[Rfam]
RNA sequence: GUCCUCGCCAAUGCUGCGUUUCUUUGCUCACAUACAGACCGCUGCCUUCAGCUCGUCACCCCUGGCAAAUGAGAAAUUCGGAGUAAUCUUCAAACUGCACGCCACCGCUUCACCGCGCUCUGGCAACUGCCCGUGAGGGCCUACCAUGACACCCAUGGCUGCACCUGGCAUCAGAAAUCUCAGCCCGCUUCGGUCUGCUGGAGGAUGCAUCUUCGUUUUUGUUUGAUGAGGACAGCGACUGGGAUGUGGCUAUGGGAGCCGGUGCGAAGAUCGUCUGUACAACCUUAUGGGCACGAGACUUCAGUGCAAUACGCAGCAUGCUGUACGCCUUCGUCGCUGUUGAAACAUACGGUGGGCGAGGUGGAGGGUAUCAUUCGAUUCCGAUUAUUCUGGCGAGGAC
Numbered sequence: 001g002u003c004c005u006c007g008c009c010a011a012u013g014c015u016g017c018g019u020u021u022c023u024u025u026g027c028u029c030a031c032a033u034a035c036a037g038a039c040c041g042c043u044g045c046c047u048u049c050a051g052c053u054c055g056u057c058a059c060c061c062c063u064g065g066c067a068a069a070u071g072a073g074a075a076a077u078u079c080g081g082a083g084u085a086a087u088c089u090u091c092a093a094a095c096u097g098c099a100c101g102c103c104a105c106c107g108c109u110u111c112a113c114c115g116c117g118c119u120c121u122g123g124c125a126a127c128u129g130c131c132c133g134u135g136a137g138g139g140c141c142u143a144c145c146a147u148g149a150c151a152c153c154c155a156u157g158g159c160u161g162c163a164c165c166u167g168g169c170a171u172c173a174g175a176a177a178u179c180u181c182a183g184c185c186c187g188c189u190u191c192g193g194u195c196u197g198c199u200g201g202a203g204g205a206u207g208c209a210u211c212u213u214c215g216u217u218u219u220u221g222u223u224u225g226a227u228g229a230g231g232a233c234a235g236c237g238a239c240u241g242g243g244a245u246g247u248g249g250c251u252a253u254g255g256g257a258g259c260c261g262g263u264g265c266g267a268a269g270a271u272c273g274u275c276u277g278u279a280c281a282a283c284c285u286u287a288u289g290g291g292c293a294c295g296a297g298a299c300u301u302c303a304g305u306g307c308a309a310u311a312c313g314c315a316g317c318a319u320g321c322u323g324u325a326c327g328c329c330u331u332c333g334u335c336g337c338u339g340u341u342g343a344a345a346c347a348u349a350c351g352g353u354g355g356g357c358g359a360g361g362u363g364g365a366g367g368g369u370a371u372c373a374u375u376c377g378a379u380u381c382c383g384a385u386u387a388u389u390c391u392g393g394c395g396a397g398g399a400c
Stems, first nucleotide, its partner, number of pairs: 001400004008393003013317007023069004037057003041052002079383005088269004129140004144158004161265005167259001182251003318371005324365001
Source information: Rfam assigns this 400-nucleotide RNA from Salinomyces thailandicus to the family "Nuclear RNase P". Rfam classes the family as a ribozyme. It scores 42 bits against the family's covariance model. About the family: Ribonuclease P (RNase P) is a ubiquitous endoribonuclease, found in archaea, bacteria and eukarya as well as chloroplasts and mitochondria. Rfam links the family to the GO terms ribonuclease P complex, ribonuclease P activity and tRNA processing. The organism belongs to Salinomyces, within Eukaryota. Pairs were carried over by alignment from the consensus structure, which is taken from published work.